[Rfam]
RNA: Eukaryotic large subunit ribosomal RNA, nucleotides 424 to 816
Organism: Clytia hemisphaerica
RNA sequence: CGCAUGGAAUUAGCAACGGCGGCGAGAAAUUCAGGUGUUGGGUGUGAGUUCGCUGCGGAGUGCAGAUCCGAAGGACUGUCUUUGUAGUGUUUCUUUCUCCCAUCAUCGCACUUUUCUCGUUGCCGCGUCAACGACUGUUCGGACCGGCGGAAACGUCCUCGGAGAAGGUAGCUCUCCUCGGAGAGUGUUAUAGCUUCGGGUGACCGCGUCGGGCUGGACAGAGGAGUCGCGACUCGUGCCUUCGGGCGGGCCUCUUUUGAAUGUCGUUUCUGCGAGCAUGGUAGACUGCGUGCAGUGUACUUGAACUGUAGGGAUUCCAUUUAAGAGACAGGCACCAACGAGUCGAGGUCGUUGGCGGUCAUAUGGUUUUAUGCGACCCGUCUUGAAACACGG
Numbered sequence: 001c002g003c004a005u006g007g008a009a010u011u012a013g014c015a016a017c018g019g020c021g022g023c024g025a026g027a028a029a030u031u032c033a034g035g036u037g038u039u040g041g042g043u044g045u046g047a048g049u050u051c052g053c054u055g056c057g058g059a060g061u062g063c064a065g066a067u068c069c070g071a072a073g074g075a076c077u078g079u080c081u082u083u084g085u086a087g088u089g090u091u092u093c094u095u096u097c098u099c100c101c102a103u104c105a106u107c108g109c110a111c112u113u114u115u116c117u118c119g120u121u122g123c124c125g126c127g128u129c130a131a132c133g134a135c136u137g138u139u140c141g142g143a144c145c146g147g148c149g150g151a152a153a154c155g156u157c158c159u160c161g162g163a164g165a166a167g168g169u170a171g172c173u174c175u176c177c178u179c180g181g182a183g184a185g186u187g188u189u190a191u192a193g194c195u196u197c198g199g200g201u202g203a204c205c206g207c208g209u210c211g212g213g214c215u216g217g218a219c220a221g222a223g224g225a226g227u228c229g230c231g232a233c234u235c236g237u238g239c240c241u242u243c244g245g246g247c248g249g250g251c252c253u254c255u256u257u258u259g260a261a262u263g264u265c266g267u268u269u270c271u272g273c274g275a276g277c278a279u280g281g282u283a284g285a286c287u288g289c290g291u292g293c294a295g296u297g298u299a300c301u302u303g304a305a306c307u308g309u310a311g312g313g314a315u316u317c318c319a320u321u322u323a324a325g326a327g328a329c330a331g332g333c334a335c336c337a338a339c340g341a342g343u344c345g346a347g348g349u350c351g352u353u354g355g356c357g358g359u360c361a362u363a364u365g366g367u368u369u370u371a372u373g374c375g376a377c378c379c380g381u382c383u384u385g386a387a388a389c390a391c392g393g
Stems, first nucleotide, its partner, number of pairs: 001375012017125013129354007378393004